[Rfam]
Nucleotides: 060
Base pairs, nucleotide, nucleotide: 017043018042019041020040021039022038023037024036025035026034
Number, partner (000 for none) and nucleotide at each position: 001000u002000g003000u004000g005000a006000c007000a008000c009000c010000a011000u012000c013000a014000a015000a016000g017043g018042a019041g020040u021039a022038g023037u024036u025035c026034c027000c028000u029000g030000c031000c032000c033000a034026g035025g036024a037023g038022c039021u040020a041019c042018u043017u044000a045000a046000c047000c048000a049000u050000a051000u052000u053000c054000c055000g056000a057000a058000u059000u060000c
About this RNA
A member of the RNA family "Plastid-psbN 5UTR RNA" from Capsicum baccatum, 60 nucleotides long. Pairs were carried over by alignment from the consensus structure, which was predicted with LocARNA. The source organism's lineage runs through Eukaryota, Tracheophyta, Magnoliopsida, eudicotyledons and Capsicum. About the family: Plastid psbN is a non-coding RNA (ncRNA) recognised in plastids. It was reported as a conserved 11 stem-loop in the prime untranslated region (5UTR) of psbN genes. It has been reported that the motif is retained in a subset of mature transcripts in barley, which can suggests a possible role in transcript alternative 5 prime processing. By type it is a cis-regulatory element. The match comes from Rfam's covariance-model search (67 bits). The literature on the family includes a 2023 paper in Plant Commun by Richter et al., "Retrograde signaling in plants: A critical review focusing on the GUN pathway and beyond".